[Rfam]
RNA: Bacterial small signal recognition particle RNA
Organism: Desulfovibrio ferrophilus
RNA sequence: CAGGGAAACCGGGCGGCAGCAACGCCGCCAACCCCGCCAGGCCCGAAAGGGAGCAACGGUAACGGUCGUUACUGGGUGCCUGGUUUCCACUCAA
Numbered sequence: 001c002a003g004g005g006a007a008a009c010c011g012g013g014c015g016g017c018a019g020c021a022a023c024g025c026c027g028c029c030a031a032c033c034c035c036g037c038c039a040g041g042c043c044c045g046a047a048a049g050g051g052a053g054c055a056a057c058g059g060u061a062a063c064g065g066u067c068g069u070u071a072c073u074g075g076g077u078g079c080c081u082g083g084u085u086u087c088c089a090c091u092c093a094a
Stems, first nucleotide, its partner, number of pairs: 004088010014076001017074003021070001024066004034059003042051003